[Rfam]
RNA: Bacterial RNase P class A
Organism: Clostridium sp. CAG:510
RNA sequence: CAAGUAGGACAGACAAUCGCGGCCACGUAAGUGGGUGAGGAAAGUCCGGGCUUCAUAGGGCGGGAUGCCGGAUAACGUCCGGUGGAGGUGACUCCAAGGCCAGUGCAACAGAAAUAAACCGCCGGCGGUGCGUAAGCACUGCCGGUAAGGGUGGAAAGGCAGUGUAAGAGACUACCGUCCUGCCGGUAACGGCAGGAGCCAUGUAAACCCCAUCCGAAGCAAGACCAAAAGAAAACUAUAGGCUUGCCCGGCCUGUUUUCAGGUAGGUCGCUUAAGGCUGCCGGUAACGGCAGAGUUAGAUAGAUGAUUGUCCAACGACAUAACCCGGCUUAUCGUUCUGCUUGUUUU
Numbered sequence: 001c002a003a004g005u006a007g008g009a010c011a012g013a014c015a016a017u018c019g020c021g022g023c024c025a026c027g028u029a030a031g032u033g034g035g036u037g038a039g040g041a042a043a044g045u046c047c048g049g050g051c052u053u054c055a056u057a058g059g060g061c062g063g064g065a066u067g068c069c070g071g072a073u074a075a076c077g078u079c080c081g082g083u084g085g086a087g088g089u090g091a092c093u094c095c096a097a098g099g100c101c102a103g104u105g106c107a108a109c110a111g112a113a114a115u116a117a118a119c120c121g122c123c124g125g126c127g128g129u130g131c132g133u134a135a136g137c138a139c140u141g142c143c144g145g146u147a148a149g150g151g152u153g154g155a156a157a158g159g160c161a162g163u164g165u166a167a168g169a170g171a172c173u174a175c176c177g178u179c180c181u182g183c184c185g186g187u188a189a190c191g192g193c194a195g196g197a198g199c200c201a202u203g204u205a206a207a208c209c210c211c212a213u214c215c216g217a218a219g220c221a222a223g224a225c226c227a228a229a230a231g232a233a234a235a236c237u238a239u240a241g242g243c244u245u246g247c248c249c250g251g252c253c254u255g256u257u258u259u260c261a262g263g264u265a266g267g268u269c270g271c272u273u274a275a276g277g278c279u280g281c282c283g284g285u286a287a288c289g290g291c292a293g294a295g296u297u298a299g300a301u302a303g304a305u306g307a308u309u310g311u312c313c314a315a316c317g318a319c320a321u322a323a324c325c326c327g328g329c330u331u332a333u334c335g336u337u338c339u340g341c342u343u344g345u346u347u348u
Stems, first nucleotide, its partner, number of pairs: 001344010011333001012312007020037002023034004042331003046328005051219004058249004063215005068082005083097001084095004098210002103208002105204003119150002121146011158176002161173003177199001178197008223269004231260006240254005278293006
Dot-bracket structure: ((((((((((((((((((.((.((((....)))).))....[[[.[[[[[((((...[[[[.((((((((((.....)))))(((((....)))).)((...(((((...........(((((((((((((....)))))))))))..)).......((.(((.......))).))(((((((((....)))))))).)..)))..)))))))))))))...((((....((((((...(((((.]]]]))))))))))).....))))........((((((....))))))............)))))))...........]]]]]]]].).))))))))))....